[Rfam]
RNA sequence: UCCUGAUAAAGGCAAAACCAUCCAAAGAUGGUGACGCAAAGCUAUAGGGGCUAAAGCGAACAUUCGCUAUGCCAGCCAGCUGCCGGG
Numbered sequence: 001u002c003c004u005g006a007u008a009a010a011g012g013c014a015a016a017a018c019c020a021u022c023c024a025a026a027g028a029u030g031g032u033g034a035c036g037c038a039a040a041g042c043u044a045u046a047g048g049g050g051c052u053a054a055a056g057c058g059a060a061c062a063u064u065c066g067c068u069a070u071g072c073c074a075g076c077c078a079g080c081u082g083c084c085g086g087g
Stems, first nucleotide, its partner, number of pairs: 012037002017032006040081004047077002049073003056067004
RNA: c-di-GMP-I riboswitch aptamer
Organism: Syntrophothermus lipocalidus